[Rfam]
RNA sequence: ACAACAGAACGGUUUGCAAGGGCGGUCGGCAAUCUCCCGGGAGGGAGGUGAUGCCGUGGAGGUUUACCAAACAUUGACGCUAAUGAUAUCAUUCGCGACACUGGUUGUGUUGAUUCUCUCUUUCCAUAAAAGGAAAUGACCGCCCCAUCUGCAAGGUCAGCGGUCAUUCCUCGAUCACUACCUAAAGCCGACCGCCUUUGAAGCGGCCUGUUGUCGGGGAGUCGUGCGCCAACACGGCUC
Number, nucleotide and partner (000 for none) at each position: 001a214002c213003a212004a211005c210006a000007g208008a000009a000010c190011g189012g188013u187014u186015u185016g000017c151018a148019a000020g146021g145022g144023c000024g141025g140026u139027c138028g000029g000030c050031a049032a000033u048034c047035u046036c045037c044038c000039g000040g000041g000042a000043g000044g037045g036046a035047g034048g033049u031050g030051a000052u000053g000054c000055c000056g000057u000058g120059g000060a119061g118062g117063u000064u000065u000066a000067c000068c000069a000070a000071a000072c085073a084074u000075u000076g000077a000078c000079g000080c000081u000082a000083a000084u073085g072086a000087u000088a000089u000090c000091a000092u000093u000094c000095g000096c112097g111098a110099c000100a000101c000102u000103g000104g000105u000106u000107g000108u000109g000110u098111u097112g096113a000114u000115u000116c000117u062118c061119u060120c058121u000122u000123u000124c000125c000126a000127u000128a000129a000130a000131a000132g000133g000134a000135a000136a000137u000138g027139a026140c025141c024142g000143c000144c022145c021146c020147a000148u018149c000150u000151g017152c000153a000154a000155g000156g000157u000158c000159a000160g000161c000162g170163g169164u000165c000166a000167u000168u000169c163170c162171u000172c000173g000174a000175u000176c000177a000178c000179u000180a000181c000182c000183u000184a000185a015186a014187g013188c012189c011190g010191a000192c206193c205194g204195c203196c000197u000198u000199u000200g000201a000202a000203g195204c194205g193206g192207c000208c007209u000210g005211u004212u003213g002214u001215c000216g000217g000218g000219g240220a239221g238222u237223c236224g235225u234226g233227c000228g000229c000230c000231a000232a000233c226234a225235c224236g223237g222238c221239u220240c219

This 240-nucleotide RNA from Cohnella lubricantis belongs to the Rfam family "BsrG". The literature on the family includes a 2010 paper in Nucleic Acids Res by Irnov et al., "Identification of regulatory RNAs in Bacillus subtilis". The family's consensus secondary structure was predicted with WAR. It is annotated as a small RNA. Gene Ontology terms of the family: toxin activity and autolysis. A search with the family's covariance model found it, with a score of 57 bits. Rfam describes the family as follows. bsrE, bsrG and bsrH pair through intermolecular interactions with antisense sRNAs.